[Rfam]
RNA sequence: AAAAAAAAUGGGCUAGACGCCCAUCUUGCCCAUUCUCACCGGGUGGCCGCAUCGGGAGCGCGAUAAAAGCCGCACGCCCAGCGACUCCGUGAUUCUAGCCUUUU
Numbered sequence: 001a002a003a004a005a006a007a008a009u010g011g012g013c014u015a016g017a018c019g020c021c022c023a024u025c026u027u028g029c030c031c032a033u034u035c036u037c038a039c040c041g042g043g044u045g046g047c048c049g050c051a052u053c054g055g056g057a058g059c060g061c062g063a064u065a066a067a068a069g070c071c072g073c074a075c076g077c078c079c080a081g082c083g084a085c086u087c088c089g090u091g092a093u094u095c096u097a098g099c100c101u102u103u104u
Stems, first nucleotide, its partner, number of pairs: 008024006045094002048091003055087002059083003
Shown here is a 104-nucleotide sequence from Paraburkholderia acidisoli, a member of the family "Burkholderia sRNA Bp1_Cand612_SIPHT". By type it is a small RNA. The source organism's lineage runs through Bacteria, Pseudomonadati, Pseudomonadota, Burkholderiaceae and Paraburkholderia. On this family, see Khoo et al., BMC Genomics 2012: "Computational discovery and RT-PCR validation of novel Burkholderia conserved and Burkholderia pseudomallei unique sRNAs".